Source information:
A member of the RNA family "Histone 3' UTR stem-loop" from Albula goreensis, 47 nucleotides long. Rfam's curators write: The mRNAs of metazoan histone genes lack a poly-A tail. 3' end processing occurs at a site between a highly conserved stem-loop (modelled by this family) and a purine rich region around 20 nts downstream (the histone downstream element, or HDE). The stem-loop is bound by a 31 kDa stem-loop binding protein (SLBP - also termed the histone hairpin binding protein, or HBP). Together with U7 snRNA binding of the HDE, SLBP binding nucleate s the formation of the processing complex. The source organism's lineage runs through Eukaryota, Actinopterygii, Teleostei, Albulidae and Albula. A search with the family's covariance model found it, with a score of 42 bits.
[Rfam]
RNA sequence: CCAAAGGCUCUUUUAAGAGCCACCACAUUCUCUUUUUAAAAAGCAAU
Numbered sequence: 001c002c003a004a005a006g007g008c009u010c011u012u013u014u015a016a017g018a019g020c021c022a023c024c025a026c027a028u029u030c031u032c033u034u035u036u037u038a039a040a041a042a043g044c045a046a047u
Stems, first nucleotide, its partner, number of pairs: 006021006